[Rfam]
RNA sequence: CUACACAAAGCGUUCUGGGCUUCUUUUAUGGACUUGGUGCUAAUGAAAGCCACAGUGCUUCUGCAUAAACAGUGCCACUUAAUGUUGUAGUCCCCGCUGGUCCUGUUUCAUAGCUGAUCUGUGUCCAAUAGGUGGCAAUUUCU
Numbered sequence: 001c002u003a004c005a006c007a008a009a010g011c012g013u014u015c016u017g018g019g020c021u022u023c024u025u026u027u028a029u030g031g032a033c034u035u036g037g038u039g040c041u042a043a044u045g046a047a048a049g050c051c052a053c054a055g056u057g058c059u060u061c062u063g064c065a066u067a068a069a070c071a072g073u074g075c076c077a078c079u080u081a082a083u084g085u086u087g088u089a090g091u092c093c094c095c096g097c098u099g100g101u102c103c104u105g106u107u108u109c110a111u112a113g114c115u116g117a118u119c120u121g122u123g124u125c126c127a128a129u130a131g132g133u134g135g136c137a138a139u140u141u142c143u
Base pairs, nucleotide, nucleotide: 004063005062007060008059010058011057018051019050020049021048022046023045024043025042074136075135076134077133078132079131080130084125086123087122088121089120090119096114097113098112
RNA: small nucleolar RNA snoR134
Organism: Castanea mollissima